[Rfam]
RNA sequence: AAGACCUUACUUCAUAGGAUCAUUUCUAUAGUAAGCUCUUCACGAGACUCACACAACAUGUGAGACCUAUCCAGCCAUGUUGAUGAGAUGUGGCGCGGUGUCCUGAGCGUGAGAUUGACGAUGACUUCAGAGUUCAGGUCAUCAGUCUUCGAUGAUCGUUCACCCGCUCCUUCUAGGGCAGGGCGUGGGAUGCUGUCGCUUUCUGAGUGGC
Numbered sequence: 001a002a003g004a005c006c007u008u009a010c011u012u013c014a015u016a017g018g019a020u021c022a023u024u025u026c027u028a029u030a031g032u033a034a035g036c037u038c039u040u041c042a043c044g045a046g047a048c049u050c051a052c053a054c055a056a057c058a059u060g061u062g063a064g065a066c067c068u069a070u071c072c073a074g075c076c077a078u079g080u081u082g083a084u085g086a087g088a089u090g091u092g093g094c095g096c097g098g099u100g101u102c103c104u105g106a107g108c109g110u111g112a113g114a115u116u117g118a119c120g121a122u123g124a125c126u127u128c129a130g131a132g133u134u135c136a137g138g139u140c141a142u143c144a145g146u147c148u149u150c151g152a153u154g155a156u157c158g159u160u161c162a163c164c165c166g167c168u169c170c171u172u173c174u175a176g177g178g179c180a181g182g183g184c185g186u187g188g189g190a191u192g193c194u195g196u197c198g199c200u201u202u203c204u205g206a207g208u209g210g211c
Stems, first nucleotide, its partner, number of pairs: 001040004006035006015028005048064003074211005093199003096195009107159003117147003122141006163183001164181001166179004

This 211-nucleotide RNA from Bicyclus anynana belongs to the Rfam family "Small nucleolar RNA U3". It is annotated as a C/D-box small nucleolar RNA. A reference for the family is Zwieb (1997), "The uRNA database", Nucleic Acids Res. Rfam's curators write: Small nucleolar RNAs (snoRNAs) are involved in the processing and modification of rRNA in the nucleolus. There are two main classes of snoRNAs: the box C/D class, and the box H/ACA class. It scores 126 bits against the family's covariance model.